[Rfam]
RNA sequence: AUUCUGCCCUACAGGGAAGGAUGAGAAGCUUCGACUAAGGUUCGACUCGAGCGAAGCGAGAGAACGUUGCCGCAGGCAACGGCCCGAAGGGCGAGGCGCUUUAGCGCCGAGUAAUCCUUCCCCCACCACCA
Numbered sequence: 001a002u003u004c005u006g007c008c009c010u011a012c013a014g015g016g017a018a019g020g021a022u023g024a025g026a027a028g029c030u031u032c033g034a035c036u037a038a039g040g041u042u043c044g045a046c047u048c049g050a051g052c053g054a055a056g057c058g059a060g061a062g063a064a065c066g067u068u069g070c071c072g073c074a075g076g077c078a079a080c081g082g083c084c085c086g087a088a089g090g091g092c093g094a095g096g097c098g099c100u101u102u103a104g105c106g107c108c109g110a111g112u113a114a115u116c117c118u119u120c121c122c123c124c125a126c127c128a129c130c131a
Stems, first nucleotide, its partner, number of pairs: 014122007022114001032093002035091002041088004048058002065081006
Record summary: A member of the RNA family "RtT RNA" from Klebsiella pneumoniae, 131 nucleotides long. It is one of the family's seed sequences. Lineage of the source: Bacteria > Pseudomonadati > Pseudomonadota > Enterobacterales > Klebsiella pneumoniae subsp. pneumoniae. Rfam classes the family as a cis-regulatory element. This family represents a bacterial cis-regulatory element known as RtT RNA. The exact function of RtT is unknown although it is thought that it may be involved in changing the cellular response in relation to amino acid starvation.